[Rfam]
RNA sequence: ACUUCCUGAGCCGGAACGAAAAGUUUUUAGAUUUGUGAGUGAGUUCGCAGAUUUUCUGAAAGCUUUUGGCUUGUGGUCGUGAUGUUGUGUUUGCAAUUUUGGUCUGACCUUUACAGAUCAAGCUUUUUUAAUUCCUGUAGAUUUACCCUGUCUGUCCAUUGUGAUAUUGAGUAGCACCGCAAAUUGCGGUGCUUUUUUUA
Numbered sequence: 001a002c003u004u005c006c007u008g009a010g011c012c013g014g015a016a017c018g019a020a021a022a023g024u025u026u027u028u029a030g031a032u033u034u035g036u037g038a039g040u041g042a043g044u045u046c047g048c049a050g051a052u053u054u055u056c057u058g059a060a061a062g063c064u065u066u067u068g069g070c071u072u073g074u075g076g077u078c079g080u081g082a083u084g085u086u087g088u089g090u091u092u093g094c095a096a097u098u099u100u101g102g103u104c105u106g107a108c109c110u111u112u113a114c115a116g117a118u119c120a121a122g123c124u125u126u127u128u129u130a131a132u133u134c135c136u137g138u139a140g141a142u143u144u145a146c147c148c149u150g151u152c153u154g155u156c157c158a159u160u161g162u163g164a165u166a167u168u169g170a171g172u173a174g175c176a177c178c179g180c181a182a183a184u185u186g187c188g189g190u191g192c193u194u195u196u197u198u199u200a
Base pairs, nucleotide, nucleotide: 009071010070011069012068015067016066021065022064023063024062025061026060027059028058029057030056031055100120101119102118103117104116105115106114142170143169173193174192175191176190177189178188179187180186
This 200-nucleotide RNA sequence from Pantoea ananatis belongs to the Rfam family "GcvB RNA".
Rfam classes the family as a non-coding RNA gene.
The gcvB gene encodes a small untranslated RNA involved in expression of the dipeptide and oligopeptide transport systems in Escherichia coli.
The literature on the family includes a 2016 paper in Proc Natl Acad Sci U S A by Righetti et al., "Temperature-responsive in vitro RNA structurome of Yersinia pseudotuberculosis".
Its family is annotated with mRNA binding and regulation of gene expression in the Gene Ontology.
The family's consensus secondary structure is taken from published work.
NCBI's taxonomy places the organism under Bacteria, Pseudomonadota, Enterobacterales, Erwiniaceae, Pantoea ananatis.